tRNA: a 73-nucleotide RNA from Guillardia theta. The family's RNA type in Rfam is transfer RNA. It is one of the family's seed sequences. Pairs were carried over by alignment from the consensus structure, which is taken from published work.
RNA sequence: GGGCUCAUCGUCUAAUGGAUCAGGACAGGGACCUUCUAAGUCUCUAAUGUAGGUUCGAAUCCUACUGAGCCUA
Numbered sequence: 001g002g003g004c005u006c007a008u009c010g011u012c013u014a015a016u017g018g019a020u021c022a023g024g025a026c027a028g029g030g031a032c033c034u035u036c037u038a039a040g041u042c043u044c045u046a047a048u049g050u051a052g053g054u055u056c057g058a059a060u061c062c063u064a065c066u067g068a069g070c071c072u073a
Stems, first nucleotide, its partner, number of pairs: 001072007010026004028044005049065005